[Rfam]
RNA sequence: GCUGCAUACGGGGCCGGGACGCUGUUUGAGAGUCCACUAUGAAUCUCACAGUGAACCGGUCUCUUUUGCAGC
Dot-bracket structure: (((((....(((((((...((((((..(((..............)))))))))...)))))))....)))))
Numbered sequence: 001g002c003u004g005c006a007u008a009c010g011g012g013g014c015c016g017g018g019a020c021g022c023u024g025u026u027u028g029a030g031a032g033u034c035c036a037c038u039a040u041g042a043a044u045c046u047c048a049c050a051g052u053g054a055a056c057c058g059g060u061c062u063c064u065u066u067u068g069c070a071g072c
Stems, first nucleotide, its partner, number of pairs: 001072005010063007020053006028047003

About this RNA
This 72-nucleotide sequence from Tetraodon nigroviridis belongs to the Rfam family "mir-128 microRNA precursor family". The organism belongs to Tetraodon, within Eukaryota. Pairs were carried over by alignment from the consensus structure, which was predicted with RNAalifold. Rfam 15.1 lists 1,337 matches to the family in 643 species. The literature on the family includes a 2005 paper in Genes Dev by Chen et al., "The developmental miRNA profiles of zebrafish as determined by small RNA cloning".